[Rfam]
RNA sequence: GGUCGCAUAGUACCUCUUGGGUUUCUGCGGAGGGAGUUCUACGGUGCAUUAUGCGACCGAAGAACAAGUAUGCGGACCGCAUACUGGUCGCAUAUCUGGGCCGAAAGUUUAGGCCCCUGAGGGCCAUUUCUGCGGUCACUUUG
Numbered sequence: 001g002g003u004c005g006c007a008u009a010g011u012a013c014c015u016c017u018u019g020g021g022u023u024u025c026u027g028c029g030g031a032g033g034g035a036g037u038u039c040u041a042c043g044g045u046g047c048a049u050u051a052u053g054c055g056a057c058c059g060a061a062g063a064a065c066a067a068g069u070a071u072g073c074g075g076a077c078c079g080c081a082u083a084c085u086g087g088u089c090g091c092a093u094a095u096c097u098g099g100g101c102c103g104a105a106a107g108u109u110u111a112g113g114c115c116c117c118u119g120a121g122g123g124c125c126a127u128u129u130c131u132g133c134g135g136u137c138a139c140u141u142u143g
Stems, first nucleotide, its partner, number of pairs: 002057008013046001015044002018041001020039002023032003077135005090124002095120002098116005

The family of this 143-nucleotide sequence from Nicotiana tabacum is "Small nucleolar RNA snoR2/U65". By type it is an H/ACA-box small nucleolar RNA. The base pairs follow the family's consensus structure, which was predicted with WAR. The family has 11 seed sequences and 908 matches in Rfam 15.1. The source organism's lineage runs through Eukaryota, Euphyllophyta, eudicotyledons, lamiids and Nicotiana. The literature on the family includes a 1998 paper in J Cell Sci by Shaw et al., "Localization and processing from a polycistronic precursor of novel snoRNAs in maize". Rfam links the family to the GO terms nucleolus and RNA processing.